tRNA: an 86-nucleotide sequence from Streptomyces alkaliterrae. Its family is annotated with triplet codon-amino acid adaptor activity in the Gene Ontology. It scores 51 bits against the family's covariance model.

RNA sequence: GCGGCCGUGAUGGAACUGGCAGUCAUGCUGGGUUUAGGUCCCAGUGGGUUCUCACACCCGUGUGGGUUCGAAUCCCACCGGCCGCA
Numbered sequence: 001g002c003g004g005c006c007g008u009g010a011u012g013g014a015a016c017u018g019g020c021a022g023u024c025a026u027g028c029u030g031g032g033u034u035u036a037g038g039u040c041c042c043a044g045u046g047g048g049u050u051c052u053c054a055c056a057c058c059c060g061u062g063u064g065g066g067u068u069c070g071a072a073u074c075c076c077a078c079c080g081g082c083c084g085c086a
Stems, first nucleotide, its partner, number of pairs: 001085007010026004028044005062078005